A member of the RNA family "Burkholderia RNA 14" from Paraburkholderia eburnea, 173 nucleotides long. Its family is annotated with protein binding in the Gene Ontology. Taxonomically the source falls in Paraburkholderia (Bacteria, Pseudomonadota, Betaproteobacteria, Burkholderiaceae). A reference for the family is Ramos et al. (2013), "Experimental identification of small non-coding regulatory RNAs in the opportunistic human pathogen Burkholderia cenocepacia J2315", Genomics. Co-purified with Hfq, expression confirmed by Northern blot.
[Rfam]
RNA sequence: GUGGGUGUCGUCACCGUCCAGCCGAGCACCGUGCCGGUCGUCUCCGAACUGCCGGGCCGCACCAAUGCGUUCCUCGUCGCGCAGGUGCGCGCACGGGUCGACGGUAUCGUGCUGCGCCGCGAGUUCACCGAAGGCUCGGUCGUGAAGGCCGGUCAGCGCCUGUACAAGAUCGA
Numbered sequence: 001g002u003g004g005g006u007g008u009c010g011u012c013a014c015c016g017u018c019c020a021g022c023c024g025a026g027c028a029c030c031g032u033g034c035c036g037g038u039c040g041u042c043u044c045c046g047a048a049c050u051g052c053c054g055g056g057c058c059g060c061a062c063c064a065a066u067g068c069g070u071u072c073c074u075c076g077u078c079g080c081g082c083a084g085g086u087g088c089g090c091g092c093a094c095g096g097g098u099c100g101a102c103g104g105u106a107u108c109g110u111g112c113u114g115c116g117c118c119g120c121g122a123g124u125u126c127a128c129c130g131a132a133g134g135c136u137c138g139g140u141c142g143u144g145a146a147g148g149c150c151g152g153u154c155a156g157c158g159c160c161u162g163u164a165c166a167a168g169a170u171c172g173a
Stems, first nucleotide, its partner, number of pairs: 004053004008047003013041002016038001018037002021034002023031002055150004059143002063139001067135002072133001074131002079092004094121002097118001099116002102114005157172002160168002